Rfam assigns this 74-nucleotide RNA sequence from a Streptomycetaceae bacterium to the family "tRNA".
[Rfam]
RNA sequence: GCCCCCGUAGCCCAAUUGGCAGAGGCAGUGGACUUAAAAUCCACCAAGUGUCGGUUCGAGCCCGACCGGGGGCA
Numbered sequence: 001g002c003c004c005c006c007g008u009a010g011c012c013c014a015a016u017u018g019g020c021a022g023a024g025g026c027a028g029u030g031g032a033c034u035u036a037a038a039a040u041c042c043a044c045c046a047a048g049u050g051u052c053g054g055u056u057c058g059a060g061c062c063c064g065a066c067c068g069g070g071g072g073c074a
Stems, first nucleotide, its partner, number of pairs: 001073007010026003028044005050066005
NCBI's taxonomy places the organism under Bacteria, Bacillati, Actinomycetota, Kitasatosporales, Streptomycetaceae. Transfer RNA (tRNA) molecules are approximately 80 nucleotides in length.